Rfam assigns this 114-nucleotide RNA from Giardia duodenalis to the family "Small nucleolar RNA GlsR26". A reference for the family is Hudson et al. (2012), "Evolutionarily divergent spliceosomal snRNAs and a conserved non-coding RNA processing motif in Giardia lamblia", Nucleic Acids Res. Rfam links the family to the GO terms nucleolus and RNA processing. By type it is an H/ACA-box small nucleolar RNA.
RNA sequence: GGCGCACGUUACGAGGCCUGGCUUCCGGUCCGGCCCUACCUUGCGUGCGCAUAGCUCCGGGAUAUGCGCCGUGUCUGCUCACGGCGAUUUCGGCUAUGCCGGCCCGAACACUCC
Numbered sequence: 001g002g003c004g005c006a007c008g009u010u011a012c013g014a015g016g017c018c019u020g021g022c023u024u025c026c027g028g029u030c031c032g033g034c035c036c037u038a039c040c041u042u043g044c045g046u047g048c049g050c051a052u053a054g055c056u057c058c059g060g061g062a063u064a065u066g067c068g069c070c071g072u073g074u075c076u077g078c079u080c081a082c083g084g085c086g087a088u089u090u091c092g093g094c095u096a097u098g099c100c101g102g103c104c105c106g107a108a109c110a111c112u113c114c
Base pairs, nucleotide, nucleotide: 002050003049004048005047006046007045008044009043015035016034017033018032020030021029022028058106059105060104061103067086068085069084070083071082072081073080